[Rfam]
RNA: pan motif
RNA sequence: CAGGCGGUAUUCGAAUGAAGCUGCACUGAUAAUUGCAGAAGGUUUUGUGUCAAAGUUUAGUUUUGCAUAUUCUGCUCUGAGCCGUAGGGACCGAGACAGAAGG
Numbered sequence: 001c002a003g004g005c006g007g008u009a010u011u012c013g014a015a016u017g018a019a020g021c022u023g024c025a026c027u028g029a030u031a032a033u034u035g036c037a038g039a040a041g042g043u044u045u046u047g048u049g050u051c052a053a054a055g056u057u058u059a060g061u062u063u064u065g066c067a068u069a070u071u072c073u074g075c076u077c078u079g080a081g082c083c084g085u086a087g088g089g090a091c092c093g094a095g096a097c098a099g100a101a102g103g
Stems, first nucleotide, its partner, number of pairs: 001028003004024005010019002072099003075095003079091001082089002